[Rfam]
RNA sequence: UAGUGUUACAGUGCUUUGAGAAUUUGUCUAGCAGGCCUUUGGGUCUUUACUGGAAAACUCCU
Number, nucleotide and partner (000 for none) at each position: 001u000002a000003g000004u000005g000006u000007u000008a000009c000010a000011g000012u000013g000014c000015u000016u000017u000018g000019a000020g000021a000022a000023u000024u000025u000026g000027u000028c000029u000030a000031g000032c000033a000034g059035g058036c000037c000038u055039u054040u053041g000042g051043g050044u049045c000046u000047u000048u000049a044050c043051u042052g000053g040054a039055a038056a000057a000058c035059u034060c000061c000062u000